Guanidine-I riboswitch aptamer: a 106-nucleotide RNA from Jeotgalibacillus sp. R-1-5s-1. From the family's description: This family represents a conserved RNA structure found upstream of the ykkC and yxkD genes in Bacillus subtilis and related genes in other bacteria. The match comes from Rfam's covariance-model search (85 bits). The base pairs follow the family's consensus structure.

[Rfam]
RNA sequence: AUAUAUGCUUUCUAGGGUUCCGCAGCGCUCGCUGGUCUGGUCCGAGAGAAGGCUCACGAAAGCGUAAGCUGCAUUCGUGCCACGGAGGGACAAAAGCCCGGGAGAU
Numbered sequence: 001a002u003a004u005a006u007g008c009u010u011u012c013u014a015g016g017g018u019u020c021c022g023c024a025g026c027g028c029u030c031g032c033u034g035g036u037c038u039g040g041u042c043c044g045a046g047a048g049a050a051g052g053c054u055c056a057c058g059a060a061a062g063c064g065u066a067a068g069c070u071g072c073a074u075u076c077g078u079g080c081c082a083c084g085g086a087g088g089g090a091c092a093a094a095a096g097c098c099c100g101g102g103a104g105a106u
Stems, first nucleotide, its partner, number of pairs: 007053006015043002020040002022037001023034004055079006062072001081101001083104001087099003